A member of the RNA family "Glycine riboswitch aptamer" from Thiohalocapsa marina, 94 nucleotides long.
It scores 53 bits against the family's covariance model.
RNA sequence: CCGCCAACUGCAGGAGAGUGGAUAGUGCUCACCGCUAUCCCGCCGAAGGCGCAAACUCCCAUAAUCGCUCAGGCAGAUGUACUGCGGAAUCAAC
Numbered sequence: 001c002c003g004c005c006a007a008c009u010g011c012a013g014g015a016g017a018g019u020g021g022a023u024a025g026u027g028c029u030c031a032c033c034g035c036u037a038u039c040c041c042g043c044c045g046a047a048g049g050c051g052c053a054a055a056c057u058c059c060c061a062u063a064a065u066c067g068c069u070c071a072g073g074c075a076g077a078u079g080u081a082c083u084g085c086g087g088a089a090u091c092a093a094c
Base pairs, nucleotide, nucleotide: 008087009086010085011084012083013082020040021039022038023037024036025035042074043073044072045070046069049068050067051066055062